[Rfam]
A member of the RNA family "tRNA" from Chlorella variabilis, 104 nucleotides long. It is annotated as a transfer RNA. Its family is annotated with triplet codon-amino acid adaptor activity in the Gene Ontology. Taxonomically the source falls in Chlorella (Eukaryota, Viridiplantae, core chlorophytes, Chlorellales). Pairs were carried over by alignment from the consensus structure, which is taken from published work.
RNA sequence: GGCACCGUGGCCGAGUUGGAAAGGCGACGGUUUUAAGGACUCGCUUCUUCGGGAAUCCACCGUUACUCUUAACGAGUGCGCAGGUUCGAGUCCUGUCGGUGCUA
Numbered sequence: 001g002g003c004a005c006c007g008u009g010g011c012c013g014a015g016u017u018g019g020a021a022a023g024g025c026g027a028c029g030g031u032u033u034u035a036a037g038g039a040c041u042c043g044c045u046u047c048u049u050c051g052g053g054a055a056u057c058c059a060c061c062g063u064u065a066c067u068c069u070u071a072a073c074g075a076g077u078g079c080g081c082a083g084g085u086u087c088g089a090g091u092c093c094u095g096u097c098g099g100u101g102c103u104a
Stems, first nucleotide, its partner, number of pairs: 001103007010025003027063005080096005